[Rfam]
RNA sequence: GGCUGGCCCGAGUGCAAUGGUAUUUACAACUAAUGGAUCACAACUAGUUAUAGAUUUCAUUCUUCCUUUUCUACUCCCACUGCUUCACUUGACUAGCCUUUA
Number, nucleotide and partner (000 for none) at each position: 001g098002g097003c096004u095005g094006g093007c000008c091009c000010g090011a089012g000013u000014g086015c000016a081017a000018u079019g078020g077021u000022a000023u000024u000025u000026a000027c000028a064029a063030c000031u000032a060033a000034u000035g000036g000037a000038u000039c000040a000041c000042a000043a000044c000045u000046a000047g000048u000049u000050a000051u000052a000053g000054a000055u000056u000057u000058c000059a000060u032061u000062c000063u029064u028065c000066c000067u000068u000069u000070u000071c000072u000073a000074c000075u000076c000077c020078c019079a018080c000081u016082g000083c000084u000085u000086c014087a000088c000089u011090u010091g008092a000093c006094u005095a004096g003097c002098c001099u000100u000101u000102a000
RNA: Y RNA